Rfam assigns this 64-nucleotide RNA sequence from Ramlibacter agri to the family "Betaproteobacteria toxic small RNA". For this family Rfam cites "A vast collection of microbial genes that are toxic to bacteria" (Kimelman et al., Genome Res, 2012). From the family's description: Overexpression in amino aid rich medium attenuates growth, suggesting role in repressing amino acid intake and metabolism. It scores 61 bits against the family's covariance model.
[Rfam]
RNA sequence: UGUCUCCUCCACCUCCUCCUUUGGUGGAUUUAGCCCCUGGAUCGCAAGGUCCGGGGGCUUUUUU
Numbered sequence: 001u002g003u004c005u006c007c008u009c010c011a012c013c014u015c016c017u018c019c020u021u022u023g024g025u026g027g028a029u030u031u032a033g034c035c036c037c038u039g040g041a042u043c044g045c046a047a048g049g050u051c052c053g054g055g056g057g058c059u060u061u062u063u064u
Base pairs, nucleotide, nucleotide: 008028009027010026011025012024013023032059033058034057035056036055037054038053039052040051041050